Rfam assigns this 110-nucleotide RNA from Microbacterium keratanolyticum to the family "TPP riboswitch aptamer (THI element)". The organism belongs to Microbacterium, within Bacteria.
RNA sequence: CCUCAACACCACGGGAGUCCGGUGAUCCGGGCUGAGAGGAAGCGAAAAGCGCUUCGACCGUCGAACCUGAUCUGGGUCAUGCCAGCGCAGGGAGGAGAAACAAUGUCUAC
Numbered sequence: 001c002c003u004c005a006a007c008a009c010c011a012c013g014g015g016a017g018u019c020c021g022g023u024g025a026u027c028c029g030g031g032c033u034g035a036g037a038g039g040a041a042g043c044g045a046a047a048a049g050c051g052c053u054u055c056g057a058c059c060g061u062c063g064a065a066c067c068u069g070a071u072c073u074g075g076g077u078c079a080u081g082c083c084a085g086c087g088c089a090g091g092g093a094g095g096a097g098a099a100a101c102a103a104u105g106u107c108u109a110c
Base pairs, nucleotide, nucleotide: 007097009095010094011061012060013059014058017032018031019030020029021028039055040054041053042052043051066091067090068089069088072085073084074083075082